The family of this 473-nucleotide part of an RNA from Labeo rohita is "Eukaryotic large subunit ribosomal RNA". Lineage of the source: Eukaryota > Vertebrata > Teleostomi > Osteoglossocephalai > Labeo.
[Rfam]
RNA sequence: GGUAGUAGCAAAUAUUCAAACGAGAGCUUUGAAGGCCGAAGUGGAGAAGGGUUCCAUGUGAACAGCAGUUGAACAUGGGUCAGUCGGUCCUAAGGGAUAGGCGAAGGCCGUUCGGAAGGGGGGGGCGAUGGCCUCCGUCGCCCCCGUGUCGAUCGAAAGGGAAUCGGGUCCAGAUCCCCGAACCCGGAGUGGCGGAGACGGGCGCCGCGAGGCGCCCAGUGCGGUAACGCAAACGAACCCGGAGAAGCUGGCGGGGGCCCCGGGAAGAGUUCUCUUUUCUUUGUGAAGGGCCGGGCGCCCUGGAAUGGGUUCGUCCCGAGAUAGGGGCCCACGCCCUGGAAAGCGCCGCGGUUCCGGCGGCGUCCGGUGAGCUCUCGUCGGCCCUUGAAAAUCCGGGGGAGAAGGUGUAAGUCUCGCGCCGGGCCGUACCCAUAUCCGCAGCAGGUCUCCAAGGUGAACAGCCUCUGGCAUGU
Numbered sequence: 001g002g003u004a005g006u007a008g009c010a011a012a013u014a015u016u017c018a019a020a021c022g023a024g025a026g027c028u029u030u031g032a033a034g035g036c037c038g039a040a041g042u043g044g045a046g047a048a049g050g051g052u053u054c055c056a057u058g059u060g061a062a063c064a065g066c067a068g069u070u071g072a073a074c075a076u077g078g079g080u081c082a083g084u085c086g087g088u089c090c091u092a093a094g095g096g097a098u099a100g101g102c103g104a105a106g107g108c109c110g111u112u113c114g115g116a117a118g119g120g121g122g123g124g125g126c127g128a129u130g131g132c133c134u135c136c137g138u139c140g141c142c143c144c145c146g147u148g149u150c151g152a153u154c155g156a157a158a159g160g161g162a163a164u165c166g167g168g169u170c171c172a173g174a175u176c177c178c179c180g181a182a183c184c185c186g187g188a189g190u191g192g193c194g195g196a197g198a199c200g201g202g203c204g205c206c207g208c209g210a211g212g213c214g215c216c217c218a219g220u221g222c223g224g225u226a227a228c229g230c231a232a233a234c235g236a237a238c239c240c241g242g243a244g245a246a247g248c249u250g251g252c253g254g255g256g257g258c259c260c261c262g263g264g265a266a267g268a269g270u271u272c273u274c275u276u277u278u279c280u281u282u283g284u285g286a287a288g289g290g291c292c293g294g295g296c297g298c299c300c301u302g303g304a305a306u307g308g309g310u311u312c313g314u315c316c317c318g319a320g321a322u323a324g325g326g327g328c329c330c331a332c333g334c335c336c337u338g339g340a341a342a343g344c345g346c347c348g349c350g351g352u353u354c355c356g357g358c359g360g361c362g363u364c365c366g367g368u369g370a371g372c373u374c375u376c377g378u379c380g381g382c383c384c385u386u387g388a389a390a391a392u393c394c395g396g397g398g399g400a401g402a403a404g405g406u407g408u409a410a411g412u413c414u415c416g417c418g419c420c421g422g423g424c425c426g427u428a429c430c431c432a433u434a435u436c437c438g439c440a441g442c443a444g445g446u447c448u449c450c451a452a453g454g455u456g457a458a459c460a461g462c463c464u465c466u467g468g469c470a471u472g473u
Stems, first nucleotide, its partner, number of pairs: 015033006034471001035469003043450004049430002054078006063071002085426003089160002094154002096112003100109003119145005164181005184422004208416005220231004238397006247382004252377007260367003264282005287337005298326005306318004344362006436445002452464004
Dot-bracket structure: ..............((((((.......))))))((((.....((((..((...((((((...((.....)).))))))......(((.((...(((((.(((....))))))......(((((.................))))).......))....))...(((((........)))))..((((....................(((((.......((((....))))......((((((...((((.(((((((.(((.(((((.........)))))....(((((......(((((...((((.....))))...)))))......)))))......((((((.......))))))..)))...))))))).)))).........))))))..............)))))..)))).)))..)).....((......)).)))).((((.....))))..))).)..